[Rfam]
RNA sequence: UUUGCAAGUGAUGACAAAAUAGACGGAGACAUCGGAAAUCCUUUAUAAGGAAAAUUAAAUGUAUUACUCGUCUUGGGAAUCUCUCUGAUGCAUA
Number, nucleotide and partner (000 for none) at each position: 001u000002u000003u092004g091005c090006a089007a000008g000009u000010g000011a000012u000013g000014a000015c000016a000017a000018a000019a000020u000021a000022g000023a000024c000025g000026g000027a000028g000029a000030c000031a000032u000033c000034g000035g000036a000037a000038a000039u000040c000041c000042u000043u000044u000045a000046u000047a000048a000049g000050g000051a000052a000053a000054a000055u000056u000057a000058a000059a000060u000061g000062u000063a000064u000065u000066a000067c000068u000069c000070g000071u000072c000073u000074u000075g000076g000077g000078a000079a000080u000081c000082u000083c000084u000085c000086u000087g000088a000089u006090g005091c004092a003093u000094a000
The family of this 94-nucleotide RNA from Papaver nudicaule is "Small nucleolar RNA R44/J54/Z268 family". The family is grouped with related families in Rfam's "SNORD74 clan". Pairs were carried over by alignment from the consensus structure, which was predicted with PFOLD. Lineage of the source: Eukaryota > Streptophyta > Magnoliopsida > Mesangiospermae > Papaver. The family has 29 seed sequences and 1,168 matches in Rfam 15.1. Gene Ontology terms of the family: nucleolus and RNA processing.